[Rfam]
RNA sequence: UACUGCCAAACCCUAUCUCCACCUCCACGUGGUGACCGCUGGGGGCUCUUUCUUAACGAACAGCUGCAGACGGAGAAGG
Numbered sequence: 001u002a003c004u005g006c007c008a009a010a011c012c013c014u015a016u017c018u019c020c021a022c023c024u025c026c027a028c029g030u031g032g033u034g035a036c037c038g039c040u041g042g043g044g045g046c047u048c049u050u051u052c053u054u055a056a057c058g059a060a061c062a063g064c065u066g067c068a069g070a071c072g073g074a075g076a077a078g079g
Stems, first nucleotide, its partner, number of pairs: 012079003016075001018073002021033003044065004049060002052058001

drz-agam-1 ribozyme: a 79-nucleotide RNA sequence from Hermetia illucens. Rfam 15.1 lists 10,507 matches to the family in 53 species. The base pairs follow the family's consensus structure, which is taken from published work.